[Rfam]
RNA sequence: UUUUCGUUGGUUUUUCUCAGAUUCCUGUUCUGAUAAAAGUUAAUGAAGGAGGCUUCACUAACGUAACGACUCGCCGUGCUUAGACACCGAGUUGAUACGUUCUUUU
Dot-bracket structure: .((((((((((((((.(((...........))).))))))))))))))...........((((((.(((((((..(((......)))))))))).)))))).....

The record is a 106-nucleotide RNA from Vagococcus humatus, which matches "23S methyl RNA motif" in Rfam. It scores 75 bits against the family's covariance model. The organism belongs to Vagococcus, within Bacteria. On this family, see Weinberg et al., Nucleic Acids Res 2007: "Identification of 22 candidate structured RNAs in bacteria using the CMfinder comparative genomics pipeline". The family's consensus secondary structure is taken from published work.